Source information: A member of the RNA family "c-di-GMP-I-GGC riboswitch aptamer" from Isachenkonia alkalipeptolytica, 89 nucleotides long. The organism belongs to Isachenkonia, within Bacteria.
[Rfam]
RNA sequence: UAUGACAAAGGCAAACCCGGUGAAAGCCGGGGACGCAAAGUCUCGAGUCUACGGUGUUACAAAACACUAGGGCUGUCCGACUACCAUAA
Numbered sequence: 001u002a003u004g005a006c007a008a009a010g011g012c013a014a015a016c017c018c019g020g021u022g023a024a025a026g027c028c029g030g031g032g033a034c035g036c037a038a039a040g041u042c043u044c045g046a047g048u049c050u051a052c053g054g055u056g057u058u059a060c061a062a063a064a065c066a067c068u069a070g071g072g073c074u075g076u077c078c079g080a081c082u083a084c085c086a087u088a089a
Stems, first nucleotide, its partner, number of pairs: 001089001003086002011036002016031006034075001039082004045077002047073003